[Rfam]
RNA sequence: UUUGUUUUUGCGGGGGUCAAAGCAGAAGCGUCCACGUCGCGACCCCCGGGUACUGGUUCAUAUACAUAUGUACAUGAACUUGCCAAUUCUGCU
Numbered sequence: 001u002u003u004g005u006u007u008u009u010g011c012g013g014g015g016g017u018c019a020a021a022g023c024a025g026a027a028g029c030g031u032c033c034a035c036g037u038c039g040c041g042a043c044c045c046c047c048g049g050g051u052a053c054u055g056g057u058u059c060a061u062a063u064a065c066a067u068a069u070g071u072a073c074a075u076g077a078a079c080u081u082g083c084c085a086a087u088u089c090u091g092c093u
Stems, first nucleotide, its partner, number of pairs: 013046006021093007028040003047082005053076001
RNA: Mammalian CPEB3 ribozyme